[Rfam]
RNA sequence: AACGCCUUUAAUGGUUUGUUAACCUUUCGGGAUCAGUCUGGCUGCAAUAUCUGCUUCCUCCUUGACCACGGAUGUACUGGCACCGAAGCGAAGCAGAUGACGAAAGGCCGGUUUUCGCCGGCCUUUUUGUCU
Numbered sequence: 001a002a003c004g005c006c007u008u009u010a011a012u013g014g015u016u017u018g019u020u021a022a023c024c025u026u027u028c029g030g031g032a033u034c035a036g037u038c039u040g041g042c043u044g045c046a047a048u049a050u051c052u053g054c055u056u057c058c059u060c061c062u063u064g065a066c067c068a069c070g071g072a073u074g075u076a077c078u079g080g081c082a083c084c085g086a087a088g089c090g091a092a093g094c095a096g097a098u099g100a101c102g103a104a105a106g107g108c109c110g111g112u113u114u115u116c117g118c119c120g121g122c123c124u125u126u127u128u129g130u131c132u
Base pairs, nucleotide, nucleotide: 003044004042005041006040012035013034014033015032016031049098050097051096052095053094054093055092057088059086060085063082064081066080067079068078099131100130101129102127103126104125105124106123107122108121109120110119111118